[Rfam]
RNA sequence: AGGUGAUGUCUACUGAACCUUUACCAACGUAGGCACUCGACUAUGCUGUAGGCAACCGUAGAGGUGCCUUAGACGUCAAUCGUCGCUAGUGUAGUGUGAGGCAGGGUUGAAUGCCCA
Numbered sequence: 001a002g003g004u005g006a007u008g009u010c011u012a013c014u015g016a017a018c019c020u021u022u023a024c025c026a027a028c029g030u031a032g033g034c035a036c037u038c039g040a041c042u043a044u045g046c047u048g049u050a051g052g053c054a055a056c057c058g059u060a061g062a063g064g065u066g067c068c069u070u071a072g073a074c075g076u077c078a079a080u081c082g083u084c085g086c087u088a089g090u091g092u093a094g095u096g097u098g099a100g101g102c103a104g105g106g107u108u109g110a111a112u113g114c115c116c117a
Stems, first nucleotide, its partner, number of pairs: 001020004007035007036100004040095008050069005056064002072084004104116004
RNA: epsC RNA